RNA: S. pyogenes small RNA MOSES4
Organism: Streptococcus uberis
RNA sequence: ACUUUUGCUUCUUAACUAUCUCAACUCCAUAACGAUCCAUCAGUCGAAUGGUAUAUUUUAAGUUGCUGAGGUUUACUCCAAAUUGAGUUUCUAAUUGAGUCCAGGAAACACCUGAUUUCUUUAAACUAUAAAUUUCUAAUUUAUCUUCAUAGCUUAAUUUCAUACAAUAACACCCCA
Numbered sequence: 001a002c003u004u005u006u007g008c009u010u011c012u013u014a015a016c017u018a019u020c021u022c023a024a025c026u027c028c029a030u031a032a033c034g035a036u037c038c039a040u041c042a043g044u045c046g047a048a049u050g051g052u053a054u055a056u057u058u059u060a061a062g063u064u065g066c067u068g069a070g071g072u073u074u075a076c077u078c079c080a081a082a083u084u085g086a087g088u089u090u091c092u093a094a095u096u097g098a099g100u101c102c103a104g105g106a107a108a109c110a111c112c113u114g115a116u117u118u119c120u121u122u123a124a125a126c127u128a129u130a131a132a133u134u135u136c137u138a139a140u141u142u143a144u145c146u147u148c149a150u151a152g153c154u155u156a157a158u159u160u161c162a163u164a165c166a167a168u169a170a171c172a173c174c175c176c177a
Stems, first nucleotide, its partner, number of pairs: 003108004011099005033046004047073003052068002056065001080088001117170002120167002125163001130160005138154001140152002